[Rfam]
RNA sequence: UUAGCACCUAAACCCAACGGCCACUAUUUAUUAUAAUAGUGGCUCAAACACAGGUGCUAACAGCAAAGGGUACCUCGUCGCCUUUGGAGGACUUGCUGUGCCCUUCAAAGUGAACUUAGAGGUUCUACACAC
Numbered sequence: 001u002u003a004g005c006a007c008c009u010a011a012a013c014c015c016a017a018c019g020g021c022c023a024c025u026a027u028u029u030a031u032u033a034u035a036a037u038a039g040u041g042g043c044u045c046a047a048a049c050a051c052a053g054g055u056g057c058u059a060a061c062a063g064c065a066a067a068g069g070g071u072a073c074c075u076c077g078u079c080g081c082c083u084u085u086g087g088a089g090g091a092c093u094u095g096c097u098g099u100g101c102c103c104u105u106c107a108a109a110g111u112g113a114a115c116u117u118a119g120a121g122g123u124u125c126u127a128c129a130c131a132c
Stems, first nucleotide, its partner, number of pairs: 002059008019044010070125001072123005082110009092100001